A member of the RNA family "freshwater-2 RNA", 89 nucleotides long.
It is one of the family's seed sequences.
The family's RNA type in Rfam is cis-regulatory element.
[Rfam]
RNA sequence: CAACGCAAUAAGGCGUUUUAUGCAGGCUUAAGACCCCUGCGUAGCGGCUAGAACCCGCAUCGGACUUCUAUUAAGGAGAAAACAAAAUG
Numbered sequence: 001c002a003a004c005g006c007a008a009u010a011a012g013g014c015g016u017u018u019u020a021u022g023c024a025g026g027c028u029u030a031a032g033a034c035c036c037c038u039g040c041g042u043a044g045c046g047g048c049u050a051g052a053a054c055c056c057g058c059a060u061c062g063g064a065c066u067u068c069u070a071u072u073a074a075g076g077a078g079a080a081a082a083c084a085a086a087a088u089g
Stems, first nucleotide, its partner, number of pairs: 002017005019043007044058004